[Rfam]
RNA sequence: CCUCAAGUCCUCAUACCACAACGCUUCAAGUCGUUUCCACAACUUCCUCAAUAAAUCUCAUCAAAAUGUCUCCCUGCUCUUGCAACUGCUGCAGCGGCAACUGCUCUAGCUGUGCCUGCUCCUCUUGCAGCGUAAGUAUCU
Numbered sequence: 001c002c003u004c005a006a007g008u009c010c011u012c013a014u015a016c017c018a019c020a021a022c023g024c025u026u027c028a029a030g031u032c033g034u035u036u037c038c039a040c041a042a043c044u045u046c047c048u049c050a051a052u053a054a055a056u057c058u059c060a061u062c063a064a065a066a067u068g069u070c071u072c073c074c075u076g077c078u079c080u081u082g083c084a085a086c087u088g089c090u091g092c093a094g095c096g097g098c099a100a101c102u103g104c105u106c107u108a109g110c111u112g113u114g115c116c117u118g119c120u121c122c123u124c125u126u127g128c129a130g131c132g133u134a135a136g137u138a139u140c141u
Base pairs, nucleotide, nucleotide: 075099076098077097078096082092083091084090103128104127112119113118
A. fumigatus sRNA Afu_254: a 141-nucleotide sequence from Aspergillus avenaceus.
For this family Rfam cites "Small ncRNA transcriptome analysis from Aspergillus fumigatus suggests a novel mechanism for regulation of protein synthesis" (Jochl et al., Nucleic Acids Res, 2008).
Lineage of the source: Eukaryota > saccharomyceta > Eurotiomycetidae > Aspergillaceae > Aspergillus subgen. Circumdati.
Rfam 15.1 lists 185 matches to the family in 142 species.